[Rfam]
RNA sequence: ACCGGUGGGCGGUGCUUUGAACCGAGGGCCUUGACUCACGGUCGCCUUGACCUCGGGGAGCCAGUGGCGAGACCGACGUCCUUGUGA
Number, nucleotide and partner (000 for none) at each position: 001a000002c086003c000004g000005g083006u000007g081008g080009g079010c078011g077012g000013u000014g061015c060016u000017u000018u000019g000020a000021a000022c056023c055024g054025a053026g052027g051028g000029c049030c000031u000032u000033g000034a000035c000036u000037c000038a000039c000040g074041g073042u070043c069044g068045c067046c066047u000048u000049g029050a000051c027052c026053u025054c024055g023056g022057g000058g000059a000060g015061c014062c000063a000064g000065u000066g046067g045068c044069g043070a042071g000072a000073c041074c040075g000076a000077c011078g010079u009080c008081c007082u000083u005084g000085u000086g002087a000
Background
The record is an 87-nucleotide RNA sequence, which matches "c-di-GMP-II-GAG riboswitch aptamer" in Rfam. It is one of the family's seed sequences. The family is grouped with related families in Rfam's "c-di-GMP_II riboswitch clan".